[Rfam]
RNA sequence: CGCUUUUUUCGCCCAGGCGGAACUCGACCGCCUCAAAAAGAAAUGAGGCGCUUCAUCGAUGAACACCGCCAAACCUUUGGGGUCGAGUCAAUCUGUAAGUCCUUUCAGAUUGCCCCU
Numbered sequence: 001c002g003c004u005u006u007u008u009u010c011g012c013c014c015a016g017g018c019g020g021a022a023c024u025c026g027a028c029c030g031c032c033u034c035a036a037a038a039a040g041a042a043a044u045g046a047g048g049c050g051c052u053u054c055a056u057c058g059a060u061g062a063a064c065a066c067c068g069c070c071a072a073a074c075c076u077u078u079g080g081g082g083u084c085g086a087g088u089c090a091a092u093c094u095g096u097a098a099g100u101c102c103u104u105u106c107a108g109a110u111u112g113c114c115c116c117u
Stems, first nucleotide, its partner, number of pairs: 016032005079116004089112002092109004097104002
This 117-nucleotide RNA from Limnobacter sp. MED105 belongs to the Rfam family "ALIL pseudoknot". It is annotated as a cis-regulatory element. The source organism's lineage runs through Bacteria, Pseudomonadota, Burkholderiales, Burkholderiaceae and Limnobacter. Rfam links the family to the GO term positive regulation of translational frameshifting. It is one of the family's seed sequences.